The family of this 100-nucleotide RNA from Callorhinus ursinus is "mir-1199 microRNA precursor family". The family's consensus secondary structure was predicted with RNAalifold. Rfam links the family to the GO terms RISC complex and miRNA-mediated post-transcriptional gene silencing.

RNA sequence: UGCGCCGGAGCCGAGGCCUGAGCCCUGGCGGUGCAGGCCGAGAACUCGUCGAGCUGCGCGUGCGGUCUGUGCUCAGCCUGCCCAGCCCCGGCCCCGCGCU
Numbered sequence: 001u002g003c004g005c006c007g008g009a010g011c012c013g014a015g016g017c018c019u020g021a022g023c024c025c026u027g028g029c030g031g032u033g034c035a036g037g038c039c040g041a042g043a044a045c046u047c048g049u050c051g052a053g054c055u056g057c058g059c060g061u062g063c064g065g066u067c068u069g070u071g072c073u074c075a076g077c078c079u080g081c082c083c084a085g086c087c088c089c090g091g092c093c094c095c096g097c098g099c100u
Stems, first nucleotide, its partner, number of pairs: 002099004007095002010092004015087003019075005024069001027067003031063004037057002040054001045053003